[Rfam]
The family of this 79-nucleotide RNA from Ricinus communis is "MIR473 microRNA precursor family". The organism belongs to Ricinus, within Eukaryota.
RNA sequence: AUUGUUCACUCUCUCUGAAGGCUUCAAACAGUCUCCAGCUGGCCUCAAGUUUGAGGCCUUUGGUUAGAGUGGACAAAAG
Number, nucleotide and partner (000 for none) at each position: 001a000002u000003u000004g000005u000006u072007c071008a070009c069010u068011c067012u066013c000014u000015c063016u062017g061018a060019a059020g058021g057022c056023u055024u054025c053026a000027a000028a000029c000030a000031g000032u000033c000034u000035c000036c000037a000038g000039c000040u000041g000042g000043c000044c000045u000046c000047a000048a000049g000050u000051u000052u000053g025054a024055g023056g022057c021058c020059u019060u018061u017062g016063g015064u000065u000066a012067g011068a010069g009070u008071g007072g006073a000074c000075a000076a000077a000078a000079g000

The family has 6 seed sequences and 189 matches in Rfam 15.1.